[Rfam]
RNA sequence: AUGUUAUCAAGAAAGGCAGAGGGAUUAGACCCAAUGAAGCCUUAGCAACCCUUUACCAGUAAAGAAGGUGCUAAAUUCUACCCUUGAUUGGAUAGAUAACGA
Numbered sequence: 001a002u003g004u005u006a007u008c009a010a011g012a013a014a015g016g017c018a019g020a021g022g023g024a025u026u027a028g029a030c031c032c033a034a035u036g037a038a039g040c041c042u043u044a045g046c047a048a049c050c051c052u053u054u055a056c057c058a059g060u061a062a063a064g065a066a067g068g069u070g071c072u073a074a075a076u077u078c079u080a081c082c083c084u085u086g087a088u089u090g091g092a093u094a095g096a097u098a099a100c101g102a
Stems, first nucleotide, its partner, number of pairs: 002101007013043005021032003026080004044072004049068002051064004076094001081091002

Source information
Shown here is a 102-nucleotide sequence from Pseudotamlana haliotis, a member of the family "SAM riboswitch aptamer (S box leader)". The base pairs follow the family's consensus structure, which is taken from published work.